Record summary:
MIR9563 microRNA precursor family: a 109-nucleotide RNA sequence from Brassica oleracea. The base pairs follow the family's consensus structure, which was predicted with RNAalifold. The source organism's lineage runs through Eukaryota, Tracheophyta, eudicotyledons, Gunneridae and Brassica oleracea. Rfam links the family to the GO terms miRNA-mediated post-transcriptional gene silencing and RISC complex.
RNA sequence: GGAAGUUAAGAAACUGUUUAUUAACUUUUAACUAAAAAAACUAAGAACCGGUUCUUAAAUGGUUUUUAGCUUUUUUAGUUAAAAGUUAAGAAACCGUUUCUUGACUUCC
Numbered sequence: 001g002g003a004a005g006u007u008a009a010g011a012a013a014c015u016g017u018u019u020a021u022u023a024a025c026u027u028u029u030a031a032c033u034a035a036a037a038a039a040a041c042u043a044a045g046a047a048c049c050g051g052u053u054c055u056u057a058a059a060u061g062g063u064u065u066u067u068a069g070c071u072u073u074u075u076u077a078g079u080u081a082a083a084a085g086u087u088a089a090g091a092a093a094c095c096g097u098u099u100c101u102u103g104a105c106u107u108c109c
Stems, first nucleotide, its partner, number of pairs: 001109014016094004021089019041069007